The record is a 143-nucleotide RNA from Odobenus rosmarus, which matches "small Cajal body-specific RNA 17" in Rfam. A reference for the family is Tycowski et al. (2004), "Guide RNAs with 5' Caps and Novel Box C/D snoRNA-like Domains for Modification of snRNAs in Metazoa", Curr Biol. About the family: scaRNAs are a specific class of small nuclear RNAs which localise to the Cajal bodies and guide the modification of RNA polymerase II transcribed spliceosomal RNAs U1, U2, U4, U5 and U12. The complete human U12-22/U4-8 scaRNA is composed of two tandem C/D box domains (termed U12-22 and U4-8). Gene Ontology terms of the family: RNA processing, Cajal body and nucleolus. Rfam 15.1 lists 262 matches to the family in 128 species.
[Rfam]
RNA sequence: UCCCCGAGUCCCCAGUGUAGGCCGCAGAUGAGCUCGCAGGAUUUUCCUUAUAUGAUCGGGCCUCGGUUGCUGGCGGCGCCGCUGGCCCGGAGCCUGAGAGGAUUAUGAAAACGUUUCAGGCGAGGUGUGGCUGGGGACCGGGG
Numbered sequence: 001u002c003c004c005c006g007a008g009u010c011c012c013c014a015g016u017g018u019a020g021g022c023c024g025c026a027g028a029u030g031a032g033c034u035c036g037c038a039g040g041a042u043u044u045u046c047c048u049u050a051u052a053u054g055a056u057c058g059g060g061c062c063u064c065g066g067u068u069g070c071u072g073g074c075g076g077c078g079c080c081g082c083u084g085g086c087c088c089g090g091a092g093c094c095u096g097a098g099a100g101g102a103u104u105a106u107g108a109a110a111a112c113g114u115u116u117c118a119g120g121c122g123a124g125g126u127g128u129g130g131c132u133g134g135g136g137a138c139c140g141g142g143g
Base pairs, nucleotide, nucleotide: 002143003142005141008138009137010136011135012134013133021131022130023129024128025127056097057096058095059094060093061092063090064089069086070085071084072083073082074081075080